[Rfam]
RNA sequence: GUGCAUUCAGUAGAAAUUGAAUCUAUGAAUUCGACAAUUAUGAGUUGGACGUUUUAACCAUUCAGCCAUAGAUGC
Numbered sequence: 001g002u003g004c005a006u007u008c009a010g011u012a013g014a015a016a017u018u019g020a021a022u023c024u025a026u027g028a029a030u031u032c033g034a035c036a037a038u039u040a041u042g043a044g045u046u047g048g049a050c051g052u053u054u055u056a057a058c059c060a061u062u063c064a065g066c067c068a069u070a071g072a073u074g075c
Stems, first nucleotide, its partner, number of pairs: 003075005010026005040069003044066006051059001
RNA: Plastid-ycf2 5UTR RNA